[Rfam]
RNA: Alphaproteobacteria transfer-messenger RNA
Nucleotides: 297
Base pairs, nucleotide, nucleotide: 040053041052042051043050044049057171058170059169060168061167067164068163069162070161072159073158082149083148084147086146087145088144092108093107094106095105096104109131110130111129112128113127114126115125172187173186174185175184177198179196182194183193261277262276263275264274267294268293269292270291271290272289
Number, partner (000 for none) and nucleotide at each position: 001000c002000c003000c004000c005000u006000u007000u008000c009000g010000c011000a012000g013000c014000c015000a016000g017000c018000g019000u020000c021000c022000c023000u024000c025000g026000c027000c028000u029000a030000u031000a032000u033000u034000a035000g036000c037000u038000c039000c040053g041052u042051c043050a044049g045000c046000u047000u048000g049044c050043u051042g052041a053040c054000u055000a056000u057171g058170g059169u060168g061167a062000u063000a064000a065000a066000c067164g068163g069162u070161g071000c072159g073158u074000g075000g076000a077000a078000u079000a080000a081000g082149c083148g084147u085000u086146a087145u088144g089000g090000a091000c092108c093107c094106g095105g096104g097000g098000g099000c100000a101000g102000u103000a104096c105095c106094c107093g108092g109131c110130g111129c112128c113127u114126c115125c116000a117000c118000c119000a120000u121000u122000c123000a124000u125115g126114g127113g128112g129111g130110c131109g132000a133000a134000a135000c136000a137000g138000a139000c140000u141000c142000g143000a144088c145087a146086u147084g148083c149082g150000u151000g152000g153000u154000a155000a156000a157000g158073a159072c160000c161070c162069a163068u164067c165000u166000u167061u168060u169059g170058c171057c172187c173186g174185g175184c176000a177198u178000u179196g180000u181000a182194c183193c184175g185174c186173c187172g188000u189000c190000a191000u192000c193183g194182g195000g196179c197000u198177a199000a200000u201000u202000u203000u204000u205000a206000a207000a208000u209000g210000c211000g212000a213000a214000c215000g216000a217000u218000a219000a220000c221000a222000a223000c224000g225000u226000u227000g228000c229000a230000u231000u232000c233000g234000c235000c236000g237000u238000c239000g240000c241000u242000g243000c244000c245000u246000a247000a248000a249000a250000a251000c252000a253000g254000c255000u256000a257000a258000g259000c260000g261277c262276g263275g264274u265000u266000c267294g268293g269292g270291g271290g272289g273000u274264a275263c276262c277261g278000g279000g280000c281000a282000a283000c284000a285000g286000a287000a288000a289272c290271c291270c292269c293268c294267c295000a296000c297000u